[Rfam]
RNA sequence: UAAUGCCAGGGUCAGAAGCCGGCACCAUGAUGCGCUUGCGCAUGAAUGUGUGCAUGGCUUCAUGACCCGCCCUGAUCUGAGCAUAAAAGUGAAUCAAAAGAUUCACGAUAUGCGAAGAGCAGUGAAGAUUUCGGGAGUGCAAAGCACGGAGCAAUCUUCUGGCAUCA
Numbered sequence: 001u002a003a004u005g006c007c008a009g010g011g012u013c014a015g016a017a018g019c020c021g022g023c024a025c026c027a028u029g030a031u032g033c034g035c036u037u038g039c040g041c042a043u044g045a046a047u048g049u050g051u052g053c054a055u056g057g058c059u060u061c062a063u064g065a066c067c068c069g070c071c072c073u074g075a076u077c078u079g080a081g082c083a084u085a086a087a088a089g090u091g092a093a094u095c096a097a098a099a100g101a102u103u104c105a106c107g108a109u110a111u112g113c114g115a116a117g118a119g120c121a122g123u124g125a126a127g128a129u130u131u132c133g134g135g136a137g138u139g140c141a142a143a144g145c146a147c148g149g150a151g152c153a154a155u156c157u158u159c160u161g162g163c164a165u166c167a
Stems, first nucleotide, its partner, number of pairs: 001167001003165005010067004015061007022053004026048003030043005072122003076118003081113004089106007126157005132151001137147004